Annotation: This 103-nucleotide RNA from Pleurotus ostreatus belongs to the Rfam family "tRNA".
RNA sequence: GGGCACUUAGCACAGGGGUAGCGCGUUCGCUUCGCACAGAGUACCAGCCCGCCAGGCCCACAGUGCUUGCGAGAGGUCGUGGGUUCAAAUCCCACAGUGUCCA
Numbered sequence: 001g002g003g004c005a006c007u008u009a010g011c012a013c014a015g016g017g018g019u020a021g022c023g024c025g026u027u028c029g030c031u032u033c034g035c036a037c038a039g040a041g042u043a044c045c046a047g048c049c050c051g052c053c054a055g056g057c058c059c060a061c062a063g064u065g066c067u068u069g070c071g072a073g074a075g076g077u078c079g080u081g082g083g084u085u086c087a088a089a090u091c092c093c094a095c096a097g098u099g100u101c102c103a
Stems, first nucleotide, its partner, number of pairs: 001102007010024002013021001026073005079095005
By type it is a transfer RNA.